Rfam assigns this 151-nucleotide sequence from Pseudorhodoferax sp. Leaf267 to the family "ZMP/ZTP riboswitch aptamer (pfl RNA motif)". Pairs were carried over by alignment from the consensus structure, which is taken from published work. On this family, see Jones and Ferre-D'Amare, Nat Struct Mol Biol 2015: "Recognition of the bacterial alarmone ZMP through long-distance association of two RNA subdomains".
[Rfam]
RNA sequence: GCGCCCGUGCGCAACUGGCGAUAGGCAGAGGUCGACGCAGACCCUUUGCUGACGUGGGCCCGCAGGACAUUUCUGCUCCUGGACAACCACUGGGAAGCGCACCGCGAGAUCUCCGAUCCACCGCGUUCAGCCGUUCGCCUGGGCAGCCCUU
Numbered sequence: 001g002c003g004c005c006c007g008u009g010c011g012c013a014a015c016u017g018g019c020g021a022u023a024g025g026c027a028g029a030g031g032u033c034g035a036c037g038c039a040g041a042c043c044c045u046u047u048g049c050u051g052a053c054g055u056g057g058g059c060c061c062g063c064a065g066g067a068c069a070u071u072u073c074u075g076c077u078c079c080u081g082g083a084c085a086a087c088c089a090c091u092g093g094g095a096a097g098c099g100c101a102c103c104g105c106g107a108g109a110u111c112u113c114c115g116a117u118c119c120a121c122c123g124c125g126u127u128c129a130g131c132c133g134u135u136c137g138c139c140u141g142g143g144c145a146g147c148c149c150u151u
Stems, first nucleotide, its partner, number of pairs: 005104001007102006015094002017139005054090004128146001130144003